[Rfam]
RNA sequence: AAAAGUGUGAAGGAGUGGUUUUACUAAAACAAUGGAAACAAGGAAACAUUUGAUUUAGUAAAACUUAGAA
Numbered sequence: 001a002a003a004a005g006u007g008u009g010a011a012g013g014a015g016u017g018g019u020u021u022u023a024c025u026a027a028a029a030c031a032a033u034g035g036a037a038a039c040a041a042g043g044a045a046a047c048a049u050u051u052g053a054u055u056u057a058g059u060a061a062a063a064c065u066u067a068g069a070a
Stems, first nucleotide, its partner, number of pairs: 017065005024058002030052002032049003

Shown here is a 70-nucleotide RNA sequence, a member of the family "Cyano-1 RNA". The base pairs follow the family's consensus structure, which is taken from published work. The sequence is in the family's curated seed alignment.